[Rfam]
RNA sequence: CUUCCCAUUCAUUUACUGCUAUAGUCUUUUCAAUGAUAUGAGCAGUUUUAUAUGUGGAUAAAAUAACAUUGGGCCAUUGUAAAUUGAAAUGGAAUAAUCAUUCCAUCUCUUCUGCGUUCAUGGUCUAGGCAUUG
Numbered sequence: 001c002u003u004c005c006c007a008u009u010c011a012u013u014u015a016c017u018g019c020u021a022u023a024g025u026c027u028u029u030u031c032a033a034u035g036a037u038a039u040g041a042g043c044a045g046u047u048u049u050a051u052a053u054g055u056g057g058a059u060a061a062a063a064u065a066a067c068a069u070u071g072g073g074c075c076a077u078u079g080u081a082a083a084u085u086g087a088a089a090u091g092g093a094a095u096a097a098u099c100a101u102u103c104c105a106u107c108u109c110u111u112c113u114g115c116g117u118u119c120a121u122g123g124u125c126u127a128g129g130c131a132u133u134g
Base pairs, nucleotide, nucleotide: 003058004057005056007055008054015046016045017044018043019042020041022038023037025036026035069128070127071126072125073124074123075122076121078116079115080114081113086109087108089106090105091104092103093102094101095100
Dot-bracket structure: ..(((.((......((((((.((.((........))))..)))))).......)))))..........((((((((.((((....((.(((((((....))))))).))...))))....))))))))......

A member of the RNA family "Small nucleolar RNA SNORA20" from Molossus molossus, 134 nucleotides long. Clan: SNORA20 clan. The base pairs follow the family's consensus structure, which was predicted with ILM. It is annotated as an H/ACA-box small nucleolar RNA. The organism belongs to Molossus, within Eukaryota. The family has 17 seed sequences and 437 matches in Rfam 15.1. The match comes from Rfam's covariance-model search (97 bits). Rfam's curators write: ACA20 is a member of the H/ACA class of snoRNA that guide the sites of modification of uridines to pseudouridines. Rfam links the family to the GO terms RNA processing and nucleolus.